[Rfam]
RNA sequence: UUAAUCGCUAUGAUAAAGAAGAGUACAUUUUGCAAAGCUUUUAGAGAGUCUGUGAUGGUGAGAAGCAGAUAGUGGCGCAAUUUGGAAUGGGCUUUGGAGCAUCCGAACCGAAACAUCGUUUCCGAGAAAGGAAAUUUUAGAAGUAGGCUUCGGCGUUUUUCCUAACGUUAUAUAGGAAUCCAUAUCGCCUCAUAGGCUGUAUGGUCAUAAGUGAUUCUAAAUUUUAGAAUAAUUAGGGUGGUACCACGGUCCAUUCGUCCCUAUC
Numbered sequence: 001u002u003a004a005u006c007g008c009u010a011u012g013a014u015a016a017a018g019a020a021g022a023g024u025a026c027a028u029u030u031u032g033c034a035a036a037g038c039u040u041u042u043a044g045a046g047a048g049u050c051u052g053u054g055a056u057g058g059u060g061a062g063a064a065g066c067a068g069a070u071a072g073u074g075g076c077g078c079a080a081u082u083u084g085g086a087a088u089g090g091g092c093u094u095u096g097g098a099g100c101a102u103c104c105g106a107a108c109c110g111a112a113a114c115a116u117c118g119u120u121u122c123c124g125a126g127a128a129a130g131g132a133a134a135u136u137u138u139a140g141a142a143g144u145a146g147g148c149u150u151c152g153g154c155g156u157u158u159u160u161c162c163u164a165a166c167g168u169u170a171u172a173u174a175g176g177a178a179u180c181c182a183u184a185u186c187g188c189c190u191c192a193u194a195g196g197c198u199g200u201a202u203g204g205u206c207a208u209a210a211g212u213g214a215u216u217c218u219a220a221a222u223u224u225u226a227g228a229a230u231a232a233u234u235a236g237g238g239u240g241g242u243a244c245c246a247c248g249g250u251c252c253a254u255u256c257g258u259c260c261c262u263a264u265c
Stems, first nucleotide, its partner, number of pairs: 007100002015095004026084002030080002037073003048070006103152001105150002108147002154167003214230007235262004246258004
The record is a 265-nucleotide RNA from Anaerobacillus arseniciselenatis, which matches "T-box leader" in Rfam. From the family's description: Uncharged tRNA acts as the effector for transcription antitermination of genes in the T-box leader family. T-boxes are found upstream of many aminoacyl-tRNA synthetase genes and some amino acid biosynthetic genes usually in Gram-positive bacteria. The anticodon of a specific tRNA base pairs to a specifier sequence within the T-box motif, and the NCCA acceptor tail of the tRNA base pairs to a conserved bulge in the T-box antiterminator hairpin.